Annotation
The record is a 55-nucleotide RNA sequence from Solanum tuberosum, which matches "MIR8008 microRNA precursor family" in Rfam.
[Rfam]
RNA sequence: AUUUCCAGAAAAGCGACGGACAGGGUCCUUCAGUCUGUCGCUUAUCUGGGAUUUU
Numbered sequence: 001a002u003u004u005c006c007a008g009a010a011a012a013g014c015g016a017c018g019g020a021c022a023g024g025g026u027c028c029u030u031c032a033g034u035c036u037g038u039c040g041c042u043u044a045u046c047u048g049g050g051a052u053u054u055u
Stems, first nucleotide, its partner, number of pairs: 001053001003051007011043011
A search with the family's covariance model found it, with a score of 66 bits. Gene Ontology terms of the family: miRNA-mediated post-transcriptional gene silencing and RISC complex. The family has 2 seed sequences and 240 matches in Rfam 15.1.